A member of the RNA family "Cyanobacterial functional RNA 19" from Prochlorococcus marinus, 82 nucleotides long.
RNA sequence: GCUUACUUGAAAUUAUUCUUGUGAGAAUUAGGUAAUGAGAGUUCGUUUUCAGCUAAAAAUCGAACUCUUUUUUUAUUAAAAA
Numbered sequence: 001g002c003u004u005a006c007u008u009g010a011a012a013u014u015a016u017u018c019u020u021g022u023g024a025g026a027a028u029u030a031g032g033u034a035a036u037g038a039g040a041g042u043u044c045g046u047u048u049u050c051a052g053c054u055a056a057a058a059a060u061c062g063a064a065c066u067c068u069u070u071u072u073u074u075a076u077u078a079a080a081a082a
Stems, first nucleotide, its partner, number of pairs: 002025005009018003028079004034072002037069009046059004
Dot-bracket structure: .(((((..(((....)))..)))))..((((..((.(((((((((((((......)))).))))))))).))...))))...
By type it is a small RNA. The literature on the family includes a 2008 paper in PLoS Genet by Steglich et al., "The challenge of regulation in a minimal photoautotroph: non-coding RNAs in Prochlorococcus".